[Rfam]
RNA sequence: GCCCUCACCUCGGGGUGCCCGUGCCCGACACGGCUGAGAUGCGCCAUGCGAACCCGUUGAACCUGAACCGGCUAACACCGGCGGAGGGAAGGUAUCGGCUGAUCUG
Numbered sequence: 001g002c003c004c005u006c007a008c009c010u011c012g013g014g015g016u017g018c019c020c021g022u023g024c025c026c027g028a029c030a031c032g033g034c035u036g037a038g039a040u041g042c043g044c045c046a047u048g049c050g051a052a053c054c055c056g057u058u059g060a061a062c063c064u065g066a067a068c069c070g071g072c073u074a075a076c077a078c079c080g081g082c083g084g085a086g087g088g089a090a091g092g093u094a095u096c097g098g099c100u101g102a103u104c105u106g
Base pairs, nucleotide, nucleotide: 007093008092009091010090011056012055013054014053016050017034018033019032041049042048043047062087063086064085068081069080070079071078
Dot-bracket structure: ......((((((((.((((............)))......(((...))))..)))).....(((...((((......))))...)))..)))).............
A member of the RNA family "TPP riboswitch aptamer (THI element)" from Celeribacter neptunius, 106 nucleotides long. The source organism's lineage runs through Bacteria, Pseudomonadati, Alphaproteobacteria, Roseobacteraceae and Celeribacter.